[Rfam]
RNA: Bacillus-plasmid RNA
RNA sequence: AUUGUCAAGGGUAUCUGUCCAACUACUCUUAUGCAUAGUAGGCAUGAUAAGGACUUGACAAUACUUAAAUA
Dot-bracket structure: (((((((((............................................))))))))).........
Numbered sequence: 001a002u003u004g005u006c007a008a009g010g011g012u013a014u015c016u017g018u019c020c021a022a023c024u025a026c027u028c029u030u031a032u033g034c035a036u037a038g039u040a041g042g043c044a045u046g047a048u049a050a051g052g053a054c055u056u057g058a059c060a061a062u063a064c065u066u067a068a069a070u071a
Stems, first nucleotide, its partner, number of pairs: 001062009